RNA sequence: GACUCCCUUCGUUAGGUGAGGCUCCUAUGUGGAGAUACGCUACUACCCAAAAAUGUCGAGAGACGCCAAUGGGUCAACAGAAAUCAUCGAAAUAAGGUGUUUUUUAACGUAGCUGGAUAAUUUCCUAUGCCGCAUAGUGCUAAAACUCAACGUUUGAAGGUAACA
Numbered sequence: 001g002a003c004u005c006c007c008u009u010c011g012u013u014a015g016g017u018g019a020g021g022c023u024c025c026u027a028u029g030u031g032g033a034g035a036u037a038c039g040c041u042a043c044u045a046c047c048c049a050a051a052a053a054u055g056u057c058g059a060g061a062g063a064c065g066c067c068a069a070u071g072g073g074u075c076a077a078c079a080g081a082a083a084u085c086a087u088c089g090a091a092a093u094a095a096g097g098u099g100u101u102u103u104u105u106a107a108c109g110u111a112g113c114u115g116g117a118u119a120a121u122u123u124c125c126u127a128u129g130c131c132g133c134a135u136a137g138u139g140c141u142a143a144a145a146c147u148c149a150a151c152g153u154u155u156g157a158a159g160g161u162a163a164c165a
Stems, first nucleotide, its partner, number of pairs: 006160005011151002013095001015147003020141003025137008039113005045074005054065004080104004086098003115125003
Dot-bracket structure: .....((((((([.(((..(((..((((((((......(((((.(((((....((((....))))....))))).....((((..(((......])))..))))....))))).(((.....)))....)))))))).)))...)))..))....))))).....

M-box riboswitch aptamer (ykoK leader): a 165-nucleotide RNA.
It is one of the family's seed sequences.
Gene Ontology terms of the family: response to magnesium ion and regulation of gene expression.